Nuclear RNase P: a 553-nucleotide RNA sequence from Collybiopsis confluens. Rfam links the family to the GO terms tRNA processing, ribonuclease P activity and ribonuclease P complex. It is annotated as a ribozyme. The match comes from Rfam's covariance-model search (62 bits).
RNA sequence: GCAGUCCAAAAGCCACGACACUCGCUCCAUACCAGAGCUUUGCGGCUCUUUCUUUGCGAGUGGGCUAAGGUCUGAGUAUACACACACUCUCUCGAUUGAUUCUAGCUGAAUCUGUCUUUCAACGAGACAAGCGAUGUAUCCGAAAUUCACUGUAUUUUUCCCCCGCUUUUUUUCUUAAUGAACCCCGAAGACCCUUUGGAUCAUUAGAUGAUACAAAGCGAGGGUGAAUGGGGGAACUUGUAGUUUGGAACUUCAUUGUGGAGGUUGGGCAGGGACUAAUUAUUUCCAUCUUCGCCUGCCCUUGUUUGUUUUUUUUACCUACGCUGCUGUGUGCUCUCUUGUAGAGUGCAAUUGUUGGAUUUGUGCGAACCAUUGGCCUCGGCCAUGGACUUGACUGUCAACAACUCGAGUAGACUAUCGAUAGUCCUCGGCAUGCGAGCGUAGGAAUAGAAAAAGGGCGGAGGGAUGGUCAUUUUACCCUGUCCUUUAGUGCACUUCGUGGCGCAUAGUACCUUUUUACUAUGCAACUCGAUUCAGACUACUCUUGGUCUGC
Numbered sequence: 001g002c003a004g005u006c007c008a009a010a011a012g013c014c015a016c017g018a019c020a021c022u023c024g025c026u027c028c029a030u031a032c033c034a035g036a037g038c039u040u041u042g043c044g045g046c047u048c049u050u051u052c053u054u055u056g057c058g059a060g061u062g063g064g065c066u067a068a069g070g071u072c073u074g075a076g077u078a079u080a081c082a083c084a085c086a087c088u089c090u091c092u093c094g095a096u097u098g099a100u101u102c103u104a105g106c107u108g109a110a111u112c113u114g115u116c117u118u119u120c121a122a123c124g125a126g127a128c129a130a131g132c133g134a135u136g137u138a139u140c141c142g143a144a145a146u147u148c149a150c151u152g153u154a155u156u157u158u159u160c161c162c163c164c165g166c167u168u169u170u171u172u173u174c175u176u177a178a179u180g181a182a183c184c185c186c187g188a189a190g191a192c193c194c195u196u197u198g199g200a201u202c203a204u205u206a207g208a209u210g211a212u213a214c215a216a217a218g219c220g221a222g223g224g225u226g227a228a229u230g231g232g233g234g235a236a237c238u239u240g241u242a243g244u245u246u247g248g249a250a251c252u253u254c255a256u257u258g259u260g261g262a263g264g265u266u267g268g269g270c271a272g273g274g275a276c277u278a279a280u281u282a283u284u285u286c287c288a289u290c291u292u293c294g295c296c297u298g299c300c301c302u303u304g305u306u307u308g309u310u311u312u313u314u315u316u317a318c319c320u321a322c323g324c325u326g327c328u329g330u331g332u333g334c335u336c337u338c339u340u341g342u343a344g345a346g347u348g349c350a351a352u353u354g355u356u357g358g359a360u361u362u363g364u365g366c367g368a369a370c371c372a373u374u375g376g377c378c379u380c381g382g383c384c385a386u387g388g389a390c391u392u393g394a395c396u397g398u399c400a401a402c403a404a405c406u407c408g409a410g411u412a413g414a415c416u417a418u419c420g421a422u423a424g425u426c427c428u429c430g431g432c433a434u435g436c437g438a439g440c441g442u443a444g445g446a447a448u449a450g451a452a453a454a455a456g457g458g459c460g461g462a463g464g465g466a467u468g469g470u471c472a473u474u475u476u477a478c479c480c481u482g483u484c485c486u487u488u489a490g491u492g493c494a495c496u497u498c499g500u501g502g503c504g505c506a507u508a509g510u511a512c513c514u515u516u517u518u519a520c521u522a523u524g525c526a527a528c529u530c531g532a533u534u535c536a537g538a539c540u541a542c543u544c545u546u547g548g549u550c551u552g553c
Stems, first nucleotide, its partner, number of pairs: 001553004007547003012503007020061005034049004038044001072537005098112005113129006131259006149244006504525007